[Rfam]
The record is an 84-nucleotide RNA from Pseudomonas sp. URIL14HWK12:I9, which matches "narK RNA" in Rfam. It scores 51 bits against the family's covariance model. Pairs were carried over by alignment from the consensus structure, which is taken from published work. Rfam classes the family as a cis-regulatory element.
RNA sequence: GGCCCAGCCAUUGCUACGCACAGGCAAAGGCCGUCAACGACGAUGGCCGCCCAUCCAGGCAUUACCCCACGACAAAGGCGCCGU
Numbered sequence: 001g002g003c004c005c006a007g008c009c010a011u012u013g014c015u016a017c018g019c020a021c022a023g024g025c026a027a028a029g030g031c032c033g034u035c036a037a038c039g040a041c042g043a044u045g046g047c048c049g050c051c052c053a054u055c056c057a058g059g060c061a062u063u064a065c066c067c068c069a070c071g072a073c074a075a076a077g078g079c080g081c082c083g084u
Stems, first nucleotide, its partner, number of pairs: 029048007